[Rfam]
RNA sequence: UUAAAUUAAAAACGCGUUACUCGUAUAUGCCCUUAAUAAGGAAGGGCGUUUCUACCGGAAACCAUUGUAAUUUCCGUCUAUGAGUGGCAAAGGUGCUUCU
Numbered sequence: 001u002u003a004a005a006u007u008a009a010a011a012a013c014g015c016g017u018u019a020c021u022c023g024u025a026u027a028u029g030c031c032c033u034u035a036a037u038a039a040g041g042a043a044g045g046g047c048g049u050u051u052c053u054a055c056c057g058g059a060a061a062c063c064a065u066u067g068u069a070a071u072u073u074c075c076g077u078c079u080a081u082g083a084g085u086g087g088c089a090a091a092g093g094u095g096c097u098u099c100u
Stems, first nucleotide, its partner, number of pairs: 018086008029047006056076006
A member of the RNA family "Purine riboswitch aptamer" from Proteiniclasticum ruminis, 100 nucleotides long. The base pairs follow the family's consensus structure, which is taken from published work. About the family: Riboswitches are metabolite binding domains within certain messenger RNAs that serve as precision sensors for their corresponding targets.